RNA sequence: UCACAUGUGUUGCCGGGGUAACAAAAACUCUGAGUUCUCUCUGCUUCAGAGUUGUGUUGACCUGGCUCUAUAUGUA
Numbered sequence: 001u002c003a004c005a006u007g008u009g010u011u012g013c014c015g016g017g018g019u020a021a022c023a024a025a026a027a028c029u030c031u032g033a034g035u036u037c038u039c040u041c042u043g044c045u046u047c048a049g050a051g052u053u054g055u056g057u058u059g060a061c062c063u064g065g066c067u068c069u070a071u072a073u074g075u076a
Stems, first nucleotide, its partner, number of pairs: 001076001004074004009069001012066006019059004024055001026053008034044002
RNA: mir-4872 microRNA precursor family
Organism: Branchiostoma floridae